The family of this 88-nucleotide RNA sequence from Ananas comosus is "MIR2275 microRNA precursor family". The source organism's lineage runs through Eukaryota, Viridiplantae, Spermatophyta, commelinids and Ananas. Rfam links the family to the GO terms miRNA-mediated post-transcriptional gene silencing and RISC complex. The family's consensus secondary structure was predicted with RNAalifold.

RNA sequence: GCACUGAAUGUGAGGAUUGGAGGAAAUCAAACUAGUUGCUGCAGAUCAUCAAUCAGUUUGGUUUCCUCCAAUAUCUCAUCUUCACUUG
Numbered sequence: 001g002c003a004c005u006g007a008a009u010g011u012g013a014g015g016a017u018u019g020g021a022g023g024a025a026a027u028c029a030a031a032c033u034a035g036u037u038g039c040u041g042c043a044g045a046u047c048a049u050c051a052a053u054c055a056g057u058u059u060g061g062u063u064u065c066c067u068c069c070a071a072u073a074u075c076u077c078a079u080c081u082u083c084a085c086u087u088g
Base pairs, nucleotide, nucleotide: 005084006083007082008081011078012077013076014075016072017071018070019069020068021067023065024064025063026062027061028060029059030058032056033055